[Rfam]
RNA sequence: CGAGAUAACUCUCUCUAAGGAACUCGGCAACAUGGCCCCGUAACUUCGGAAGAAGGGGUGCCUACGCAAGUAGGUCGCAGUGAAGAGAUCCAGGCGACUGUUUACCAAAAACACAGGUCUCCGCAAAGUCAAUAGACGAGGUAUGGGGGCUGACGCCUGCCCAGUGCCGGAAGGUUAAGGAAGUCGGUCAGGGCCUUGAGCCUAAAGCUGGCGACCGAAGCCCCGGUGAACGGCGGCCGUAACUAUAACGGUCCUAAGGUAGCGAAAUUCCUUGUCGGGUAAGUUCCGACCCGCACGAAAGGCGUAACGAUCUGGAUGGUGUCUCAGAGAGAGACUCG
Numbered sequence: 001c002g003a004g005a006u007a008a009c010u011c012u013c014u015c016u017a018a019g020g021a022a023c024u025c026g027g028c029a030a031c032a033u034g035g036c037c038c039c040g041u042a043a044c045u046u047c048g049g050a051a052g053a054a055g056g057g058g059u060g061c062c063u064a065c066g067c068a069a070g071u072a073g074g075u076c077g078c079a080g081u082g083a084a085g086a087g088a089u090c091c092a093g094g095c096g097a098c099u100g101u102u103u104a105c106c107a108a109a110a111a112c113a114c115a116g117g118u119c120u121c122c123g124c125a126a127a128g129u130c131a132a133u134a135g136a137c138g139a140g141g142u143a144u145g146g147g148g149g150c151u152g153a154c155g156c157c158u159g160c161c162c163a164g165u166g167c168c169g170g171a172a173g174g175u176u177a178a179g180g181a182a183g184u185c186g187g188u189c190a191g192g193g194c195c196u197u198g199a200g201c202c203u204a205a206a207g208c209u210g211g212c213g214a215c216c217g218a219a220g221c222c223c224c225g226g227u228g229a230a231c232g233g234c235g236g237c238c239g240u241a242a243c244u245a246u247a248a249c250g251g252u253c254c255u256a257a258g259g260u261a262g263c264g265a266a267a268u269u270c271c272u273u274g275u276c277g278g279g280u281a282a283g284u285u286c287c288g289a290c291c292c293g294c295a296c297g298a299a300a301g302g303c304g305u306a307a308c309g310a311u312c313u314g315g316a317u318g319g320u321g322u323c324u325c326a327g328a329g330a331g332a333g334a335c336u337c338g
Base pairs, nucleotide, nucleotide: 001338002337003336004335009333010332011331012330013329014328015327016326018324019323020322035059036058037057038056039055044049060075061074062073063072064071065070076080088317089316090315091314092313093312094311095309096308099113100112101111116151117150118149119148120147121146122145123144124141128137129136130135154304155303156302157301159234160233161232164231165230166227167226168225169224170223173222174221175220179216180215183212184211185210186209187208188207191203192202193201194200235253236252237251238250239249240248254258264291274290275289276288277287278286279285
This 338-nucleotide part of an RNA from Chroococcidiopsis thermalis belongs to the Rfam family "Bacterial large subunit ribosomal RNA". The match comes from Rfam's covariance-model search (2697 bits). NCBI's taxonomy places the organism under Bacteria, Bacillati, Cyanobacteriota, Chroococcidiopsis, Chroococcidiopsis thermalis.